[Rfam]
Overview:
Small nucleolar RNA SNORA42/SNORA80 family: a 133-nucleotide RNA from Pipistrellus kuhlii. Rfam links the family to the GO terms nucleolus and RNA processing. From the family's description: The members of this family belong to the H/ACA class of snoRNAs that guide the sites of modification of uridines to pseudouridines. Human ACA42 (SNORA42) was cloned from HeLa cells by immunoprecipitation with anti-GAR1 antibody. The family has 21 seed sequences and 1,535 matches in Rfam 15.1. Pairs were carried over by alignment from the consensus structure, which was predicted with RNAalifold.
RNA sequence: GCACGGCUUUGGCUGGACGGCAGGCCUGUCCCCCUGGGUCUCUCAGAUGCCCCGUGCCAGAGCAAACUGUGGCCUCGAACCAUUGCCUGACCUCUGCCCGGAGGCUGCAGGCAAUGAAGCAUGUUGCACAGGG
Numbered sequence: 001g002c003a004c005g006g007c008u009u010u011g012g013c014u015g016g017a018c019g020g021c022a023g024g025c026c027u028g029u030c031c032c033c034c035u036g037g038g039u040c041u042c043u044c045a046g047a048u049g050c051c052c053c054g055u056g057c058c059a060g061a062g063c064a065a066a067c068u069g070u071g072g073c074c075u076c077g078a079a080c081c082a083u084u085g086c087c088u089g090a091c092c093u094c095u096g097c098c099c100g101g102a103g104g105c106u107g108c109a110g111g112c113a114a115u116g117a118a119g120c121a122u123g124u125u126g127c128a129c130a131g132g133g
Stems, first nucleotide, its partner, number of pairs: 001057004005052002008049001019044002022041003025037002070126004075121001081116002086111002088107002091104003